ZMP/ZTP riboswitch aptamer (pfl RNA motif): a 109-nucleotide RNA sequence. Pairs were carried over by alignment from the consensus structure, which is taken from published work. Gene Ontology terms of the family: one-carbon metabolic process and regulation of purine nucleotide biosynthetic process.
RNA sequence: UCAUCCCUGCGUGACUGGCGAUAGAACCGGUUCAAACAAUCGGAUUCAAGGUGGAACAACCCACCGUGAAGCGCGGGGUGCCGUUUUGCCGUUCGCCUGGGCAGCUGUG
Numbered sequence: 001u002c003a004u005c006c007c008u009g010c011g012u013g014a015c016u017g018g019c020g021a022u023a024g025a026a027c028c029g030g031u032u033c034a035a036a037c038a039a040u041c042g043g044a045u046u047c048a049a050g051g052u053g054g055a056a057c058a059a060c061c062c063a064c065c066g067u068g069a070a071g072c073g074c075g076g077g078g079u080g081c082c083g084u085u086u087u088g089c090c091g092u093u094c095g096c097c098u099g100g101g102c103a104g105c106u107g108u109g
Base pairs, nucleotide, nucleotide: 005078006077007076008075009074010073011072012071015068017097018096019095020094021093051064052063053062054061086104087103088102089101090100